[Rfam]
RNA sequence: GGCUCAGUGAUUACAUGCCUGAUUUGUGGGCAAUAUACGCUAUUCCGAUUGAAUACAUGAGCGGAGGAUUUUGUGAGAAUGAAUGAGAGCU
Numbered sequence: 001g002g003c004u005c006a007g008u009g010a011u012u013a014c015a016u017g018c019c020u021g022a023u024u025u026g027u028g029g030g031c032a033a034u035a036u037a038c039g040c041u042a043u044u045c046c047g048a049u050u051g052a053a054u055a056c057a058u059g060a061g062c063g064g065a066g067g068a069u070u071u072u073g074u075g076a077g078a079a080u081g082a083a084u085g086a087g088a089g090c091u
Base pairs, nucleotide, nucleotide: 001091002090003089004088005087
The family of this 91-nucleotide RNA from Rhododendron simsii is "Small nucleolar RNA U54". On this family, see Chen et al., Nucleic Acids Res 2003: "The high diversity of snoRNAs in plants: identification and comparative study of 120 snoRNA genes from Oryza sativa". The source organism's lineage runs through Eukaryota, Euphyllophyta, Mesangiospermae, Ericaceae and Rhododendron.